The family of this 378-nucleotide RNA sequence from Nanosmitevirus nanosmite is "Giant, ornate, lake- and Lactobacillales-derived (GOLLD) RNA". The base pairs follow the family's consensus structure, which is taken from published work. A search with the family's covariance model found it, with a score of 192 bits. Rfam classes the family as a non-coding RNA gene. Taxonomically the source falls in Nanosmitevirus nanosmite (Viruses, Duplodnaviria, Vilmaviridae, Mclasvirinae).
Nucleotides: 378
Stems, first nucleotide, its partner, number of pairs: 002062008010044004017039004022034004047111007097176002112263006119257004128292005137161006143153003162189005171181003192248003196244001209233004214227004272287005294354006300317007318370003323343006362377003
Number, partner (000 for none) and nucleotide at each position: 001000g002062a003061g004060a005059g006058g007057c008056g009055u010044g011043a012042a013041g014000c015000a016000u017039u018038c019037u020036g021000u022034g023033c024032c025031c026000c027000a028000a029000a030000a031025g032024g033023g034022u035000u036020c037019g038018g039017a040000a041013c042012u043011u044010c045000a046000u047111g048110g049109g050108g051107a052106a053105g054000c055009a056008c057007g058006u059005c060004u061003c062002u063000a064000g065000u066000c067000g068000c069000a070000a071000c072000a073000u074000u075000a076000c077000c078000u079000u080000g081000c082000u083000a084000u085000a086000g087000g088000a089000a090000a091000u092000a093000a094000c095000a096000a097176g098175c099000a100000c101000a102000a103000g104000c105053c106052u107051u108050u109049c110048c111047c112263u113262g114261c115260c116259g117258a118000g119257a120256a121255g122254c123000a124000a125000a126000a127000g128292c129291g130290c131289c132288u133000u134000a135000a136000u137161c138160c139159c140158c141157g142156a143153c144152u145151g146000u147000g148000g149000a150000g151145c152144a153143g154000a155000a156142u157141c158140g159139g160138g161137g162189c163188c164187g165186u166185c167000a168000c169000g170000a171181g172180c173179c174000c175098g176097c177000a178000a179173g180172g181171c182000g183000a184000c185166g186165g187164c188163g189162g190000u191000u192248u193247g194246u195000a196244g197000a198000c199000a200000a201000g202000u203000a204000g205000g206000g207000c208000a209233g210232c211231g212230g213000u214227g215226g216225g217224a218000c219000g220000g221000c222000c223000a224217u225216c226215c227214c228000a229000u230212c231211c232210g233209c234000g235000a236000a237000u238000c239000g240000a241000a242000a243000g244196u245000c246194g247193c248192a249000g250000a251000g252000u253000a254122g255121c256120u257119u258117u259116c260115g261114g262113c263112a264000u265000g266000a267000c268000g269000a270000g271000u272287g273286g274285u275284u276283c277000a278000c279000g280000u281000a282000c283276g284275g285274a286273c287272c288132a289131g290130g291129c292128g293000u294354u295353g296352c297351a298350c299349g300317u301316a302315c303314u304313c305312a306311g307000g308000g309000g310000a311306c312305u313304g314303a315302g316301u317300g318370g319369a320368c321000a322000a323343g324342c325341u326340g327339g328338g329000a330000a331000u332000c333000c334000a335000u336000a337000a338328u339327c340326c341325a342324g343323c344000g345000a346000a347000a348000g349299c350298g351297u352296g353295u354294g355000g356000a357000c358000g359000g360000g361000a362377g363376g364375u365000u366000u367000a368320g369319u370318c371000u372000c373000u374000a375364g376363c377362c378000c